t44 RNA: a 105-nucleotide RNA sequence from Frateuria aurantia. The family's consensus secondary structure was predicted with LocARNA.
RNA sequence: CUGAAUCAGGCAUACGAUGCCACACACGUAUCGACACCGUACUCGGGGUGCCUUGCUGCCUGGCCGGCAGCCGGGUCGAGCACGGGGAUGCGUGGAGGUCUUAAC
Numbered sequence: 001c002u003g004a005a006u007c008a009g010g011c012a013u014a015c016g017a018u019g020c021c022a023c024a025c026a027c028g029u030a031u032c033g034a035c036a037c038c039g040u041a042c043u044c045g046g047g048g049u050g051c052c053u054u055g056c057u058g059c060c061u062g063g064c065c066g067g068c069a070g071c072c073g074g075g076u077c078g079a080g081c082a083c084g085g086g087g088a089u090g091c092g093u094g095g096a097g098g099u100c101u102u103a104a105c
Stems, first nucleotide, its partner, number of pairs: 025094008037085004042080004050076004
A search with the family's covariance model found it, with a score of 63 bits.
Lineage of the source: Bacteria > Pseudomonadati > Pseudomonadota > Frateuria > Frateuria aurantia.